[Rfam]
RNA sequence: GAAAGCGGUAUUCUCCAGUAAUGACAUAGUAUAUGAAUUUGUUAUUGCUUGAGAAUACAACUUGC
Numbered sequence: 001g002a003a004a005g006c007g008g009u010a011u012u013c014u015c016c017a018g019u020a021a022u023g024a025c026a027u028a029g030u031a032u033a034u035g036a037a038u039u040u041g042u043u044a045u046u047g048c049u050u051g052a053g054a055a056u057a058c059a060a061c062u063u064g065c
Stems, first nucleotide, its partner, number of pairs: 008058006017049010
RNA: mir-234 microRNA precursor family